This 98-nucleotide sequence from Spiroplasma turonicum belongs to the Rfam family "Purine riboswitch aptamer". A reference for the family is Mandal and Breaker (2004), "Adenine riboswitches and gene activation by disruption of a transcription terminator", Nat Struct Mol Biol. Taxonomically the source falls in Spiroplasma (Bacteria, Mycoplasmatota, Entomoplasmatales, Spiroplasmataceae). A search with the family's covariance model found it, with a score of 57 bits.
RNA sequence: AUAAUAAAUUUGUAAUCAUUUUAUAUAUGCUUGUAAUAUGGUCGAGCGUUUCUACAAAUAACCGAAAAUUAUUGUCUAUAAAAUGAGUCAUAUAACUA
Numbered sequence: 001a002u003a004a005u006a007a008a009u010u011u012g013u014a015a016u017c018a019u020u021u022u023a024u025a026u027a028u029g030c031u032u033g034u035a036a037u038a039u040g041g042u043c044g045a046g047c048g049u050u051u052c053u054a055c056a057a058a059u060a061a062c063c064g065a066a067a068a069u070u071a072u073u074g075u076c077u078a079u080a081a082a083a084u085g086a087g088u089c090a091u092a093u094a095a096c097u098a
Base pairs, nucleotide, nucleotide: 018084019083020082021081022080023079024078025077030046031045032044033043057073058072059071060070061069
Dot-bracket structure: .................((((((((....((((.........))))..........(((((.......)))))...))))))))..............